[Rfam]
RNA sequence: UGGCGCCCAACGUGGGGCUGAAUACUGGAGGAUAACGUGAGGGUCCGAUGACGAAGAUAAGAAGAAGGGGUGUGCACCCGAUCAAAUAGUAGCUCGGAGACGUUGUGGUAGCCUGCUGUGACUGAGCCGACAGGUAAGUUGGUCGUUUAAUCAUGGGGCAAGAAUUGAGUCAGCAUCGGAAAUAUGUAAUACAGUUAAAAGAAGCUUUACAGGCAAGAGGAGUAAAGGUUACAACUGAAGAUUUAUUUCAUUUCUUUGAUUUUGUGAAAGACAUCUGCCCAU
Numbered sequence: 001u002g003g004c005g006c007c008c009a010a011c012g013u014g015g016g017g018c019u020g021a022a023u024a025c026u027g028g029a030g031g032a033u034a035a036c037g038u039g040a041g042g043g044u045c046c047g048a049u050g051a052c053g054a055a056g057a058u059a060a061g062a063a064g065a066a067g068g069g070g071u072g073u074g075c076a077c078c079c080g081a082u083c084a085a086a087u088a089g090u091a092g093c094u095c096g097g098a099g100a101c102g103u104u105g106u107g108g109u110a111g112c113c114u115g116c117u118g119u120g121a122c123u124g125a126g127c128c129g130a131c132a133g134g135u136a137a138g139u140u141g142g143u144c145g146u147u148u149a150a151u152c153a154u155g156g157g158g159c160a161a162g163a164a165u166u167g168a169g170u171c172a173g174c175a176u177c178g179g180a181a182a183u184a185u186g187u188a189a190u191a192c193a194g195u196u197a198a199a200a201g202a203a204g205c206u207u208u209a210c211a212g213g214c215a216a217g218a219g220g221a222g223u224a225a226a227g228g229u230u231a232c233a234a235c236u237g238a239a240g241a242u243u244u245a246u247u248u249c250a251u252u253u254c255u256u257u258g259a260u261u262u263u264g265u266g267a268a269a270g271a272c273a274u275c276u277g278c279c280c281a282u
Stems, first nucleotide, its partner, number of pairs: 006030001008028001012025003036050003092135003096131001101126001104120005144158001146157004166209003169205002217257006226244005267282001270279001272277001
A member of the RNA family "Mason-Pfizer monkey virus packaging signal" from Nannospalax galili, 282 nucleotides long. By type it is a cis-regulatory element. Its family is annotated with viral genome packaging in the Gene Ontology.